RNA sequence: UAGGAAAAGAAGAAGCACCCGCUUCUCACCUGAUUGACGCUGGUAAGGCUGUCGACAGGUAACGUAUACAUUUUUAGUUAUAAUAACUAUGAUGUGGUAAGGUGUGGGUGACUAAUCAUCCACACCUUUUUUGUGAA
Numbered sequence: 001u002a003g004g005a006a007a008a009g010a011a012g013a014a015g016c017a018c019c020c021g022c023u024u025c026u027c028a029c030c031u032g033a034u035u036g037a038c039g040c041u042g043g044u045a046a047g048g049c050u051g052u053c054g055a056c057a058g059g060u061a062a063c064g065u066a067u068a069c070a071u072u073u074u075u076a077g078u079u080a081u082a083a084u085a086a087c088u089a090u091g092a093u094g095u096g097g098u099a100a101g102g103u104g105u106g107g108g109u110g111a112c113u114a115a116u117c118a119u120c121c122a123c124a125c126c127u128u129u130u131u132u133g134u135g136a137a
Stems, first nucleotide, its partner, number of pairs: 011026006028060003036053003039049002103124009
Notes:
This 137-nucleotide RNA from Bacillus benzoevorans belongs to the Rfam family "Ribosomal protein L20 leader". A reference for the family is Zengel and Lindahl (1994), "Diverse mechanisms for regulating ribosomal protein synthesis in Escherichia coli", Prog Nucleic Acid Res Mol Biol. It scores 76 bits against the family's covariance model. Rfam's curators write: This family is a putative r-protein leader autoregulatory structure found in B. subtilis and other low-GC Gram-positive bacteria. It is located in the 5' untranslated regions of mRNAs encoding initiation factor 3 followed by ribosomal proteins L35 and L20 (infC-rpmI-rplT). A Rho-independent transcription terminator structure that is probably involved in regulation is included at the 3' end. The organism belongs to Bacillus, within Bacteria.